[Rfam]
RNA sequence: GGAAGGCAAUCGCGCCCGGUGGCGCGGCCGGGCUUCAAACCCGGUUGGGGACGGCAGCCGUUCCCGGGCAGGUUCGACUCCCGCUGCCUUCC
Numbered sequence: 001g002g003a004a005g006g007c008a009a010u011c012g013c014g015c016c017c018g019g020u021g022g023c024g025c026g027g028c029c030g031g032g033c034u035u036c037a038a039a040c041c042c043g044g045u046u047g048g049g050g051a052c053g054g055c056a057g058c059c060g061u062u063c064c065c066g067g068g069c070a071g072g073u074u075c076g077a078c079u080c081c082c083g084c085u086g087c088c089u090u091c092c
Base pairs, nucleotide, nucleotide: 001092002091003090004089005088006087007086008085011026012025013024014023015022016021027045028044029043030042031041032040047065048064049063050062051061069083071081072080
Selenocysteine transfer RNA: a 92-nucleotide sequence from Pseudomonas putida. Rfam links the family to the GO term triplet codon-amino acid adaptor activity. The source organism's lineage runs through Bacteria, Pseudomonadati, Gammaproteobacteria, Pseudomonadales and Pseudomonas putida. Rfam's curators put it in the seed alignment. Pairs were carried over by alignment from the consensus structure, which is taken from published work.